A member of the RNA family "XIST RNA A repeat", 35 nucleotides long. It is annotated as a small RNA. Rfam 15.1 lists 900 matches to the family in 145 species. The family's consensus secondary structure was predicted with CMfinder. It is one of the family's seed sequences.
RNA sequence: UGGCCCAUCGGGGCUUCGGAUACCUGCUUUUUUUU
Dot-bracket structure: ..((((....))))..(((....))).........